[Rfam]
RNA sequence: GUAAUAGUGAUGUUAUGGGGGGAAGGAAGUGGCUAGCGAGUUUUCAGAGUCUACGUACAGAAACCUGGUCAGGCCAAAUGGUGGAUAAGACUGCAUCACAAGUCGAAGUCCGAAAGACAACCGUAAAACCAAGACGGUAAACCAGGAGGCAGUGGAAAACAAUAGAUGAUUGU
Numbered sequence: 001g002u003a004a005u006a007g008u009g010a011u012g013u014u015a016u017g018g019g020g021g022g023a024a025g026g027a028a029g030u031g032g033c034u035a036g037c038g039a040g041u042u043u044u045c046a047g048a049g050u051c052u053a054c055g056u057a058c059a060g061a062a063a064c065c066u067g068g069u070c071a072g073g074c075c076a077a078a079u080g081g082u083g084g085a086u087a088a089g090a091c092u093g094c095a096u097c098a099c100a101a102g103u104c105g106a107a108g109u110c111c112g113a114a115a116g117a118c119a120a121c122c123g124u125a126a127a128a129c130c131a132a133g134a135c136g137g138u139a140a141a142c143c144a145g146g147a148g149g150c151a152g153u154g155g156a157a158a159a160c161a162a163u164a165g166a167u168g169a170u171u172g173u
Stems, first nucleotide, its partner, number of pairs: 001016006029173004037165001041159005047153001049150004064146005073138003079131004083111004089104004

Description
The family of this 173-nucleotide sequence from Lactobacillus xujianguonis is "Group II catalytic intron D1-D4-3". The source organism's lineage runs through Bacteria, Bacillati, Bacilli, Lactobacillales and Lactobacillus. Pairs were carried over by alignment from the consensus structure. About the family: Group II introns are found in rRNA, tRNA and mRNA of organelles in fungi, plants and protists, and also in mRNA in bacteria. A search with the family's covariance model found it, with a score of 87 bits.